[Rfam]
Nucleotides: 054
Stems, first nucleotide, its partner, number of pairs: 013043001014041003020036006
Number, partner (000 for none) and nucleotide at each position: 001000a002000c003000u004000a005000u006000g007000u008000a009000u010000a011000a012000a013043u014041g015040u016039a017000a018000g019000u020036c021035g022034c023033u024032c025031u026000g027000g028000a029000u030000a031025a032024g033023a034022g035021c036020g037000u038000c039016u040015g041014c042000u043013a044000a045000a046000a047000g048000c049000c050000u051000a052000u053000a054000a
This 54-nucleotide RNA sequence from Synaphobranchus kaupii belongs to the Rfam family "UnaL2 LINE 3' element". About the family: The eel long interspersed element (LINE) UnaL2 and its partner short interspersed element (SINE) share a conserved 3' tail containing a stem-loop that is critical for their retrotransposition. Presumably, the first step of retrotransposition is the recognition of their 3' tails by UnaL2-encoded reverse transcriptase. The solution structure of a 17-nucleotide RNA derived from the 3' tail of UnaL2 was determined by NMR. By type it is a cis-regulatory element. NCBI's taxonomy places the organism under Eukaryota, Craniata, Euteleostomi, Teleostei, Synaphobranchus. The literature on the family includes a 2004 paper in RNA by Baba et al., "Solution structure of an RNA stem-loop derived from the 3' conserved region of eel LINE UnaL2".